RNA sequence: UUUAAUCUUCAGGGCAGGGUGAAAUUCCCGAUCGGUGGUUAUAGUCCACGAGCUGAGUCGUUAUUUAUCAAGAAUAAUUACAACGCAGGAAUAAGUGAAAUUCUUAUACCGACAGUUAAAGUCUGGAUGGAAGAAGAAAAAA
Numbered sequence: 001u002u003u004a005a006u007c008u009u010c011a012g013g014g015c016a017g018g019g020u021g022a023a024a025u026u027c028c029c030g031a032u033c034g035g036u037g038g039u040u041a042u043a044g045u046c047c048a049c050g051a052g053c054u055g056a057g058u059c060g061u062u063a064u065u066u067a068u069c070a071a072g073a074a075u076a077a078u079u080a081c082a083a084c085g086c087a088g089g090a091a092u093a094a095g096u097g098a099a100a101u102u103c104u105u106a107u108a109c110c111g112a113c114a115g116u117u118a119a120a121g122u123c124u125g126g127a128u129g130g131a132a133g134a135a136g137a138a139a140a141a142a
Base pairs, nucleotide, nucleotide: 003140006137007136008135009134010133017029018028019027031122032121033111034110035049036048037047038046044109045108054085091107092106093105094104095103113125114124115123
Rfam assigns this 142-nucleotide sequence from Phocoenobacter uteri to the family "FMN riboswitch aptamer (RFN element)".
The source organism's lineage runs through Bacteria, Pseudomonadati, Pseudomonadota, Pasteurellaceae and Phocoenobacter.
Its family is annotated with FMN binding in the Gene Ontology.